Plant small nucleolar RNA U3: a 215-nucleotide sequence from Coptis chinensis. Lineage of the source: Eukaryota > Euphyllophyta > Spermatophyta > Mesangiospermae > Coptis. Its Rfam clan is "U3 clan". A search with the family's covariance model found it, with a score of 146 bits. For this family Rfam cites "The uRNA database" (Zwieb, Nucleic Acids Res, 1997). Its family is annotated with RNA processing and nucleolus in the Gene Ontology. Pairs were carried over by alignment from the consensus structure, which is taken from published work. It is annotated as a C/D-box small nucleolar RNA.

RNA sequence: AUGACCUUACUUGAACAGGAUCUGUUCUAUAGGGAAGUACCUCUGUUUCCUUGAAUAAUCAAGAGACGGGUAACCAAAGCUUGGUAGAUGAAACAGGACCGGGUGACCAGAGCGUGAUUAAUGGCUGGUGAUCCUGAUGGGCUCACUCUCCUAUAGAGGAUCGUUCUUAGCAACCUUUGGGCUUCUGGGGUGGUCGUGCGGUUGUCCGACAAGCC
Numbered sequence: 001a002u003g004a005c006c007u008u009a010c011u012u013g014a015a016c017a018g019g020a021u022c023u024g025u026u027c028u029a030u031a032g033g034g035a036a037g038u039a040c041c042u043c044u045g046u047u048u049c050c051u052u053g054a055a056u057a058a059u060c061a062a063g064a065g066a067c068g069g070g071u072a073a074c075c076a077a078a079g080c081u082u083g084g085u086a087g088a089u090g091a092a093a094c095a096g097g098a099c100c101g102g103g104u105g106a107c108c109a110g111a112g113c114g115u116g117a118u119u120a121a122u123g124g125c126u127g128g129u130g131a132u133c134c135u136g137a138u139g140g141g142c143u144c145a146c147u148c149u150c151c152u153a154u155a156g157a158g159g160a161u162c163g164u165u166c167u168u169a170g171c172a173a174c175c176u177u178u179g180g181g182c183u184u185c186u187g188g189g190g191u192g193g194u195c196g197u198g199c200g201g202u203u204g205u206c207c208g209a210c211a212a213g214c215c
Stems, first nucleotide, its partner, number of pairs: 001038002005033003013027006043069004048064002051061001053059001079214005098202004103197007111165004121154004127148001128146004133141003167188004172183001174181002